[Rfam]
RNA: Alphaproteobacteria transfer-messenger RNA
Organism: Maritimibacter sp. HL-12
RNA sequence: CCCCUUCACAGCACUGCCCGCAGGCCCUAUAUCUGUCUCGUUCCUUCGGGGACUAUGGACAUAAACGCGCUCGUAAUAAGCGGAUCGGACCCGGGGGCGGUACCCGGCGGCUCCACCAAACACCCGGCGUUGGCGGGACAUGGGGCCGAAACAGGAUCGACGAACGUCUAAAGGGGUUUGCUUUGUCCCGGUGAGGUACCACCGUUAUCGGUCCGUAAAGCAUAAUUGCCAACGACAAUCGUGCUCCGGUUGCUCUCGCUGCGUAAGCAGUGCGAAAGACCGAAACUUAAGCCCUUGCGCCUAGCCGCGUAAGGCGGGGUUCGCAGGCACCUGGCAACAGAAGCCUGCACC
Numbered sequence: 001c002c003c004c005u006u007c008a009c010a011g012c013a014c015u016g017c018c019c020g021c022a023g024g025c026c027c028u029a030u031a032u033c034u035g036u037c038u039c040g041u042u043c044c045u046u047c048g049g050g051g052a053c054u055a056u057g058g059a060c061a062u063a064a065a066c067g068c069g070c071u072c073g074u075a076a077u078a079a080g081c082g083g084a085u086c087g088g089a090c091c092c093g094g095g096g097g098c099g100g101u102a103c104c105c106g107g108c109g110g111c112u113c114c115a116c117c118a119a120a121c122a123c124c125c126g127g128c129g130u131u132g133g134c135g136g137g138a139c140a141u142g143g144g145g146c147c148g149a150a151a152c153a154g155g156a157u158c159g160a161c162g163a164a165c166g167u168c169u170a171a172a173g174g175g176g177u178u179u180g181c182u183u184u185g186u187c188c189c190g191g192u193g194a195g196g197u198a199c200c201a202c203c204g205u206u207a208u209c210g211g212u213c214c215g216u217a218a219a220g221c222a223u224a225a226u227u228g229c230c231a232a233c234g235a236c237a238a239u240c241g242u243g244c245u246c247c248g249g250u251u252g253c254u255c256u257c258g259c260u261g262c263g264u265a266a267g268c269a270g271u272g273c274g275a276a277a278g279a280c281c282g283a284a285a286c287u288u289a290a291g292c293c294c295u296u297g298c299g300c301c302u303a304g305c306c307g308c309g310u311a312a313g314g315c316g317g318g319g320u321u322c323g324c325a326g327g328c329a330c331c332u333g334g335c336a337a338c339a340g341a342a343g344c345c346u347g348c349a350c351c
Base pairs, nucleotide, nucleotide: 040053041052042051043050044049057188058187059186060185061184067181068180069177070176071175072174081166082165085163086162087161091107092106093105094104095103108148109147110146111145112144113143114142189204190203191202192201195214196213198212199211200210317332318331319330320329323348324347325346326345327344328343